[Rfam]
RNA sequence: GUGGGCUAUGGGGACAUGGUGCCUGUCACUAUAGGGGGUAAGAUAGUGGGCUCCCUUUGCGCCAUAGCUGGUGUGUUGACGAUUGCACUCCCAGUGCCUGUCAUUGUGUCCAAC
Numbered sequence: 001g002u003g004g005g006c007u008a009u010g011g012g013g014a015c016a017u018g019g020u021g022c023c024u025g026u027c028a029c030u031a032u033a034g035g036g037g038g039u040a041a042g043a044u045a046g047u048g049g050g051c052u053c054c055c056u057u058u059g060c061g062c063c064a065u066a067g068c069u070g071g072u073g074u075g076u077u078g079a080c081g082a083u084u085g086c087a088c089u090c091c092c093a094g095u096g097c098c099u100g101u102c103a104u105u106g107u108g109u110c111c112a113a114c
Stems, first nucleotide, its partner, number of pairs: 001114002004111002007108005013102004018097001021095002037077004049063003